[Rfam]
RNA sequence: UUUGGCAUUGGCUUUACGCGCCAUGAUGCCAUUGCCCACCGCAUGCAACAGGUGAGUUUUACCCAAGCCGGUUCCACCAUA
Numbered sequence: 001u002u003u004g005g006c007a008u009u010g011g012c013u014u015u016a017c018g019c020g021c022c023a024u025g026a027u028g029c030c031a032u033u034g035c036c037c038a039c040c041g042c043a044u045g046c047a048a049c050a051g052g053u054g055a056g057u058u059u060u061a062c063c064c065a066a067g068c069c070g071g072u073u074c075c076a077c078c079a080u081a
Base pairs, nucleotide, nucleotide: 005042006041009038010037011036013034016032018030020029021028051078052077053076054075056074061072062071063070
antisense RNA of dnaA mRNA: an 81-nucleotide RNA from Serratia sp. DD3. The source organism's lineage runs through Bacteria, Pseudomonadati, Pseudomonadota, Yersiniaceae and Serratia. Gene Ontology term of the family: regulation of mRNA stability. A reference for the family is Dadzie et al. (2013), "Identification and characterization of a cis-encoded antisense RNA associated with the replication process of Salmonella enterica serovar Typhi", PLoS One.